[Rfam]
The family of this 132-nucleotide RNA from Enhydra lutris is "Small nucleolar RNA SNORA30/SNORA37 family". The source organism's lineage runs through Eukaryota, Bilateria, Vertebrata, Amniota and Enhydra lutris. Rfam 15.1 lists 407 matches to the family in 132 species. Rfam links the family to the GO terms RNA processing and nucleolus.
RNA sequence: AGAACACUUUCAUAGGUCCUCCCCUGACAAACCCUGGGGCCAGGAUUUGGUAGUUGCUGCUGAAAGAAAACCCUUGAUUGCAUCCUUGCCCUGUGACUGUGCCAGUUGCAGCUGUCACUCAGUGGGACAGAG
Numbered sequence: 001a002g003a004a005c006a007c008u009u010u011c012a013u014a015g016g017u018c019c020u021c022c023c024c025u026g027a028c029a030a031a032c033c034c035u036g037g038g039g040c041c042a043g044g045a046u047u048u049g050g051u052a053g054u055u056g057c058u059g060c061u062g063a064a065a066g067a068a069a070a071c072c073c074u075u076g077a078u079u080g081c082a083u084c085c086u087u088g089c090c091c092u093g094u095g096a097c098u099g100u101g102c103c104a105g106u107u108g109c110a111g112c113u114g115u116c117a118c119u120c121a122g123u124g125g126g127a128c129a130g131a132g
Stems, first nucleotide, its partner, number of pairs: 003061001005059002008056001013049003017045004022039004071126003074122004079117002082115002086111004091105003